[Rfam]
RNA sequence: GUGAAAGGCAGCGUCGCAAAGACGCACCACCACCGCCGGUCUCGUUUGGGAGGACGCGAUCUUCGGCGCAUGGACAUGCUGCCCCGGCCAACGUCGCCGGCAGAAGAUCCAGACCGGCCAUUCUGAAUGCGAGGCGAAAGCCUCGCAUUUUUUU
Number, nucleotide and partner (000 for none) at each position: 001g000002u000003g154004a153005a152006a151007g000008g000009c000010a000011g025012c024013g023014u022015c000016g000017c000018a000019a000020a000021g000022a014023c013024g012025c011026a000027c000028c000029a000030c000031c000032a000033c000034c000035g118036c117037c116038g115039g000040u000041c000042u000043c000044g055045u054046u053047u052048g000049g000050g000051a000052g047053g046054a045055c044056g000057c000058g109059a108060u107061c106062u105063u000064c000065g083066g082067c081068g079069c078070a077071u000072g000073g000074a000075c000076a000077u070078g069079c068080u000081g067082c066083c065084c100085c099086g098087g097088c096089c000090a000091a000092c000093g000094u000095c000096g088097c087098c086099g085100g084101c000102a000103g000104a000105a062106g061107a060108u059109c058110c000111a000112g000113a000114c000115c038116g037117g036118c035119c000120a000121u000122u000123c000124u000125g000126a000127a000128u147129g146130c145131g144132a143133g142134g141135c140136g000137a000138a000139a000140g135141c134142c133143u132144c131145g130146c129147a128148u000149u000150u000151u006152u005153u004154u003

Notes: A member of the RNA family "Alphaproteobacterial sRNA ar9" from Aureimonas jatrophae, 154 nucleotides long. NCBI's taxonomy places the organism under Bacteria, Pseudomonadota, Alphaproteobacteria, Aurantimonadaceae, Aureimonas.